[Rfam]
RNA sequence: UUGGGGUGAGGUAGUAGGUUGUAUAGUUUUAGGGCCACGCCCUUGCUGUCAGAUAACUAUACAACUUACUGUCUUUCCUGA
Numbered sequence: 001u002u003g004g005g006g007u008g009a010g011g012u013a014g015u016a017g018g019u020u021g022u023a024u025a026g027u028u029u030u031a032g033g034g035c036c037a038c039g040c041c042c043u044u045g046c047u048g049u050c051a052g053a054u055a056a057c058u059a060u061a062c063a064a065c066u067u068a069c070u071g072u073c074u075u076u077c078c079u080g081a
Base pairs, nucleotide, nucleotide: 001081002080003079004078005077006076008075009074010073011072012071013070014069015068016067017066018065019064020063021062022061023060024059025058026057027056032042033041034040035039044052045050

Source information: A member of the RNA family "let-7 microRNA precursor family" from Gadus morhua, 81 nucleotides long. Clan: let-7 microRNA precursor clan. NCBI's taxonomy places the organism under Eukaryota, Teleostei, Eurypterygia, Gadariae, Gadus. This family represents the microRNAs (miRNA) let-7 and mir-98. let-7 was identified from a study of developmental timing in C. elegans, and was later shown to be part of a much larger class of non-coding RNAs termed miRNAs. A reference for the family is Rougvie (2001), "Control of developmental timing in animals", Nat Rev Genet. A search with the family's covariance model found it, with a score of 74 bits.